RNA sequence: AAUAAGUACUAGGGGAGUCGUUAUGACUGAGAUGUUCUGCUUGAAUAAACCCUUUGAACCUGUGAGUUGAUACUCGCGUAGGGAAGUCGUCUAAAAAUAGC
Numbered sequence: 001a002a003u004a005a006g007u008a009c010u011a012g013g014g015g016a017g018u019c020g021u022u023a024u025g026a027c028u029g030a031g032a033u034g035u036u037c038u039g040c041u042u043g044a045a046u047a048a049a050c051c052c053u054u055u056g057a058a059c060c061u062g063u064g065a066g067u068u069g070a071u072a073c074u075c076g077c078g079u080a081g082g083g084a085a086g087u088c089g090u091c092u093a094a095a096a097a098u099a100g101c
Stems, first nucleotide, its partner, number of pairs: 008087003011053004017027004034046004059082004063076004
RNA: TPP riboswitch aptamer (THI element)
Organism: Enterococcus rivorum